[Rfam]
RNA sequence: GGAUGUGAGGGCAAUCUGGCUGCGACAUCUGUCACCCCAUUGAUCAGCAGGGUUGAUUUGGCUGAUCUAGCUGGCUAGCCAGGUGUCCACUUCCUCCCUCAACACUCCACGUGCGCCCCUCCUGAAGCUGCGUGCUCAGUCCAAGAGGAUGACCUCCCCAAUAGAGACGGUACCAUUCAUCAGUCAAGGGUAUACGGUAGCUGCGCUUCCCUGCUACAACCUCCAAACAAGCUCAAGGUCCAUUUGUAGGAGAAUGUAGGGUAGUCAAUAUUCCAAGACUGCAGAUAUAUCCAAGUGAGGAACCACAUGGGGCAGUUUGACGUUGUUU
Numbered sequence: 001g002g003a004u005g006u007g008a009g010g011g012c013a014a015u016c017u018g019g020c021u022g023c024g025a026c027a028u029c030u031g032u033c034a035c036c037c038c039a040u041u042g043a044u045c046a047g048c049a050g051g052g053u054u055g056a057u058u059u060g061g062c063u064g065a066u067c068u069a070g071c072u073g074g075c076u077a078g079c080c081a082g083g084u085g086u087c088c089a090c091u092u093c094c095u096c097c098c099u100c101a102a103c104a105c106u107c108c109a110c111g112u113g114c115g116c117c118c119c120u121c122c123u124g125a126a127g128c129u130g131c132g133u134g135c136u137c138a139g140u141c142c143a144a145g146a147g148g149a150u151g152a153c154c155u156c157c158c159c160a161a162u163a164g165a166g167a168c169g170g171u172a173c174c175a176u177u178c179a180u181c182a183g184u185c186a187a188g189g190g191u192a193u194a195c196g197g198u199a200g201c202u203g204c205g206c207u208u209c210c211c212u213g214c215u216a217c218a219a220c221c222u223c224c225a226a227a228c229a230a231g232c233u234c235a236a237g238g239u240c241c242a243u244u245u246g247u248a249g250g251a252g253a254a255u256g257u258a259g260g261g262u263a264g265u266c267a268a269u270a271u272u273c274c275a276a277g278a279c280u281g282c283a284g285a286u287a288u289a290u291c292c293a294a295g296u297g298a299g300g301a302a303c304c305a306c307a308u309g310g311g312g313c314a315g316u317u318u319g320a321c322g323u324u325g326u327u328u
Stems, first nucleotide, its partner, number of pairs: 001108003006101006014092001018090001024087008033078001035074002037070001039068001042067004048060001116170002119166003122139004127135002140161001147157003202268001206264002209261006221252004227247005293328003297323001299321001302316002306312001
RNA: 7SK RNA